[Rfam]
RNA sequence: AUCUUUGCGCUUGGGGCAAUGACGCAGCUAGUGAGGUUAUACCGAGGCGCAUCAAUUGCUGGUCGAAAACUAUUUCCAAACCUCCUCUUUGGCCCUUCAAGGCCACUGAGAAUUUCUGGAAGGGAUCCCUCUCC
Numbered sequence: 001a002u003c004u005u006u007g008c009g010c011u012u013g014g015g016g017c018a019a020u021g022a023c024g025c026a027g028c029u030a031g032u033g034a035g036g037u038u039a040u041a042c043c044g045a046g047g048c049g050c051a052u053c054a055a056u057u058g059c060u061g062g063u064c065g066a067a068a069a070c071u072a073u074u075u076c077c078a079a080a081c082c083u084c085c086u087c088u089u090u091g092g093c094c095c096u097u098c099a100a101g102g103c104c105a106c107u108g109a110g111a112a113u114u115u116c117u118g119g120a121a122g123g124g125a126u127c128c129c130u131c132u133c134c
Base pairs, nucleotide, nucleotide: 021053022052024050025049027048028047029046035043036042037041085110086109087108090105091104092103093102094101123134124133125132
RNA: U4 spliceosomal RNA
Organism: Triticum aestivum